[Rfam]
RNA sequence: GCCGUGCGAAAGACAGUAGUAGUGAGAUGUCUAGUACAUCAAAAUUCUCACUACCUUGUCUUUCAUGCGGAG
Numbered sequence: 001g002c003c004g005u006g007c008g009a010a011a012g013a014c015a016g017u018a019g020u021a022g023u024g025a026g027a028u029g030u031c032u033a034g035u036a037c038a039u040c041a042a043a044a045u046u047c048u049c050a051c052u053a054c055c056u057u058g059u060c061u062u063u064c065a066u067g068c069g070g071a072g
Base pairs, nucleotide, nucleotide: 008064009063010062011061012060013059014058015057019054021052022051023050024049025048026047027046